[Rfam]
The family of this 108-nucleotide sequence from Cebus imitator is "Y RNA". The organism belongs to Cebus, within Eukaryota. Y RNAs are components of the Ro ribonucleoprotein particle (Ro RNP), in association with Ro60 and La proteins.

RNA sequence: GGCUGGUCUGGAGGUAGUGAGUGAGUGAUCUCAAUUGACUGUCCAGUCACAGAUUGAACUUGUUCUACUCUUUUCCCCCUUCACACUACUGCCCUUGACUAGUCUUAA
Numbered sequence: 001g002g003c004u005g006g007u008c009u010g011g012a013g014g015u016a017g018u019g020a021g022u023g024a025g026u027g028a029u030c031u032c033a034a035u036u037g038a039c040u041g042u043c044c045a046g047u048c049a050c051a052g053a054u055u056g057a058a059c060u061u062g063u064u065c066u067a068c069u070c071u072u073u074u075c076c077c078c079c080u081u082c083a084c085a086c087u088a089c090u091g092c093c094c095u096u097g098a099c100u101a102g103u104c105u106u107a108a
Base pairs, nucleotide, nucleotide: 001104002103003102004101005100006099007098008097010096011095014092015091016087017086018085019084021082041070045066046065